[Rfam]
The record is a 139-nucleotide sequence from Populus alba, which matches "MIR480 microRNA precursor family" in Rfam.
RNA sequence: UAAUCUAUCCAGGAAAAAUCAUUAUCUAAUUAUAACAGACUCAUAUUUAACUGUUAAAAAUCACUUGUUAUCGCAAGUCCAACUACGCCAUUAUAUUUGUUCUAAUUCAAAUUUAAUUUUUUGUUUUCAUAAGUAGAUA
Number, nucleotide and partner (000 for none) at each position: 001u000002a000003a000004u137005c136006u135007a134008u132009c000010c000011a000012g128013g000014a126015a125016a000017a000018a122019u000020c000021a000022u000023u000024a117025u116026c000027u115028a114029a113030u000031u111032a000033u000034a000035a000036c000037a000038g000039a000040c000041u000042c000043a000044u000045a000046u000047u000048u000049a000050a000051c000052u000053g000054u000055u000056a000057a000058a000059a000060a000061u000062c000063a000064c000065u000066u000067g000068u000069u000070a000071u000072c000073g000074c000075a000076a000077g000078u000079c000080c000081a000082a000083c000084u000085a000086c000087g000088c000089c000090a000091u000092u000093a000094u000095a000096u000097u000098u000099g000100u000101u000102c000103u000104a000105a000106u000107u000108c000109a000110a000111a031112u000113u029114u028115a027116a025117u024118u000119u000120u000121u000122u018123g000124u000125u015126u014127u000128c012129a000130u000131a000132a008133g000134u007135a006136g005137a004138u000139a000
A search with the family's covariance model found it, with a score of 69 bits. Lineage of the source: Eukaryota > Embryophyta > Euphyllophyta > Gunneridae > Populus.